[Rfam]
RNA sequence: UAGAAUUACAGUUCUUUUAGAAUUUGUCUAGCAGGUUUUCUGGUGACACCACCAAAAAAUUUAA
Numbered sequence: 001u002a003g004a005a006u007u008a009c010a011g012u013u014c015u016u017u018u019a020g021a022a023u024u025u026g027u028c029u030a031g032c033a034g035g036u037u038u039u040c041u042g043g044u045g046a047c048a049c050c051a052c053c054a055a056a057a058a059a060u061u062u063a064a
Stems, first nucleotide, its partner, number of pairs: 034061006041054004
Dot-bracket structure: .................................((((((.((((......)))).))))))...
U7 small nuclear RNA: a 64-nucleotide sequence from Propithecus coquereli. About the family: Animal histone pre-mRNAs are spliced by a different mechanism than nuclear pre-mRNAs and self-splicing introns. This processing involves the U7 snRNP, which contains only one RNA species: U7. The 5' end of U7 RNA is thought to base-pair to a conserved spacer element downstream of the cleavage site in histone pre-mRNA. This family contains a number of annotated U7 pseudogenes. NCBI's taxonomy places the organism under Eukaryota, Opisthokonta, Vertebrata, Teleostomi, Propithecus.